[Rfam]
RNA sequence: GGCGGGAGUCUGUCUGAAUAAAAUACCUUCCGGGGGAAUAGGACAGGCAGUUCCUUUAGCUGUUUUCGAGACUCCCGCCUGCCUUUU
Number, nucleotide and partner (000 for none) at each position: 001g079002g078003c077004g076005g075006g074007a073008g072009u071010c000011u045012g044013u043014c042015u000016g000017a039018a000019u000020a000021a000022a000023a000024u000025a000026c035027c034028u033029u000030c000031c000032g000033g028034g027035g026036g000037a000038a000039u017040a000041g000042g014043a013044c012045a011046g064047g063048c062049a061050g060051u059052u000053c000054c000055u000056u000057u000058a000059g051060c050061u049062g048063u047064u046065u000066u000067c000068g000069a000070g000071a009072c008073u007074c006075c005076c004077g003078c002079c001080u000081g000082c000083c000084u000085u000086u000087u000
A member of the RNA family "sRNA-Xcc1" from an Acetobacteraceae bacterium, 87 nucleotides long.
A search with the family's covariance model found it, with a score of 61 bits.
It is annotated as a small RNA.
The family's consensus secondary structure was predicted with RNAalifold.
The literature on the family includes a 1996 paper in Mol Plant Microbe Interact by Wengelnik et al., "HrpG, a key hrp regulatory protein of Xanthomonas campestris pv. vesicatoria is homologous to two-component response regulators".